This 130-nucleotide sequence from Streptomyces sp. ERV7 belongs to the Rfam family "Streptomyces RNA 5676". Identified by deep sequencing of transcriptome at the end of exponential growth phase. Appears longer on northern blot than sequencing transcript. This indicates processing step. Streptomyces specific.

[Rfam]
RNA sequence: AGAUGAGAGAAACACCUCGCCCGCAGGUGACUGCGGGCGGCUCCAGGGCGGCGCGUCCCCAGCCUCGUUCUGGUCGUGCCCUGGCGCACACCGCCGGCGCUUCUGGCUCCGGAACUCCUCACCGAUCGGA
Numbered sequence: 001a002g003a004u005g006a007g008a009g010a011a012a013c014a015c016c017u018c019g020c021c022c023g024c025a026g027g028u029g030a031c032u033g034c035g036g037g038c039g040g041c042u043c044c045a046g047g048g049c050g051g052c053g054c055g056u057c058c059c060c061a062g063c064c065u066c067g068u069u070c071u072g073g074u075c076g077u078g079c080c081c082u083g084g085c086g087c088a089c090a091c092c093g094c095c096g097g098c099g100c101u102u103c104u105g106g107c108u109c110c111g112g113a114a115c116u117c118c119u120c121a122c123c124g125a126u127c128g129g130a
Stems, first nucleotide, its partner, number of pairs: 004121004009117002017040010043073005049067003053063002076089004094112004099107003122129002
By type it is a small RNA. The base pairs follow the family's consensus structure.